[Rfam]
RNA: TPP riboswitch aptamer (THI element)
Organism: Clostridium carboxidivorans
RNA sequence: UAAAUAAUCUAGGGGGGCCUAUGUUAUAGGCUGAGAUAGAACUGUUAGUUCUGACCCUCAUACCUGAUCUGGAUAAUUCCAGCGUAGGGAAGAGCUUUAUAUGGUUU
Numbered sequence: 001u002a003a004a005u006a007a008u009c010u011a012g013g014g015g016g017g018c019c020u021a022u023g024u025u026a027u028a029g030g031c032u033g034a035g036a037u038a039g040a041a042c043u044g045u046u047a048g049u050u051c052u053g054a055c056c057c058u059c060a061u062a063c064c065u066g067a068u069c070u071g072g073a074u075a076a077u078u079c080c081a082g083c084g085u086a087g088g089g090a091a092g093a094g095c096u097u098u099a100u101a102u103g104g105u106u107u
Stems, first nucleotide, its partner, number of pairs: 008093003011058004017031005038052005063088004069082004